This 198-nucleotide RNA from Cicer arietinum belongs to the Rfam family "small nucleolar RNA snoR127". The family's consensus secondary structure was predicted with RNAalifold. The family's RNA type in Rfam is C/D-box small nucleolar RNA.

[Rfam]
RNA sequence: CUGGAAUGAUGCAAAUUAGCCAAAUCAGACAUUAAUGCGCUCCAUGAGGCAACCAACAUUAUCUGUUUUAUCUUGCUCCCAUUGUCAAAGAAAAUCAUAUAGGCAUGUGAGUAAGCUUUUGAUCAUAUUGAUGACCCUCAUGUUGAAGCACAUUUCUCUGGUGAUCAACGAGGAGAUUGGUUAUUUUCCCUGACUAGA
Numbered sequence: 001c002u003g004g005a006a007u008g009a010u011g012c013a014a015a016u017u018a019g020c021c022a023a024a025u026c027a028g029a030c031a032u033u034a035a036u037g038c039g040c041u042c043c044a045u046g047a048g049g050c051a052a053c054c055a056a057c058a059u060u061a062u063c064u065g066u067u068u069u070a071u072c073u074u075g076c077u078c079c080c081a082u083u084g085u086c087a088a089a090g091a092a093a094a095u096c097a098u099a100u101a102g103g104c105a106u107g108u109g110a111g112u113a114a115g116c117u118u119u120u121g122a123u124c125a126u127a128u129u130g131a132u133g134a135c136c137c138u139c140a141u142g143u144u145g146a147a148g149c150a151c152a153u154u155u156c157u158c159u160g161g162u163g164a165u166c167a168a169c170g171a172g173g174a175g176a177u178u179g180g181u182u183a184u185u186u187u188c189c190c191u192g193a194c195u196a197g198a
Stems, first nucleotide, its partner, number of pairs: 001197004